Rfam assigns this 130-nucleotide sequence from Polaromonas sp. A23 to the family "ZMP/ZTP riboswitch aptamer (pfl RNA motif)". The base pairs follow the family's consensus structure, which is taken from published work.
[Rfam]
Nucleotides: 130
Stems, first nucleotide, its partner, number of pairs: 006079007015070002017118005055066004107125001109123003
Number, partner (000 for none) and nucleotide at each position: 001000a002000g003000c004000a005000a006079g007078g008077u009076g010075c011074g012073c013000g014000a015070c016069u017118g018117g019116c020115g021114a022000u023000a024000g025000g026000c027000a028000a029000c030000c031000c032000c033000u034000u035000c036000a037000a038000a039000c040000a041000g042000g043000g044000c045000g046000a047000u048000u049000g050000c051000u052000g053000a054000c055066g056065u057064g058063g059000g060000a061000u062000a063058c064057c065056a066055c067000u068000g069016g070015g071000a072000a073012g074011c075010g076009c077008a078007c079006c080000g081000c082000u083000g084000a085000c086000g087000u088000c089000a090000a091000c092000g093000g094000u095000g096000a097000c098000c099000a100000c101000a102000g103000c104000g105000u106000u107125c108000a109123g110122c111121c112000g113000u114021u115020c116019g117018c118017c119000u120000g121111g122110g123109c124000a125107g126000c127000c128000c129000u130000u
Background
Its family is annotated with one-carbon metabolic process and regulation of purine nucleotide biosynthetic process in the Gene Ontology. Taxonomically the source falls in Polaromonas (Bacteria, Pseudomonadota, Burkholderiales, Comamonadaceae). A search with the family's covariance model found it, with a score of 53 bits.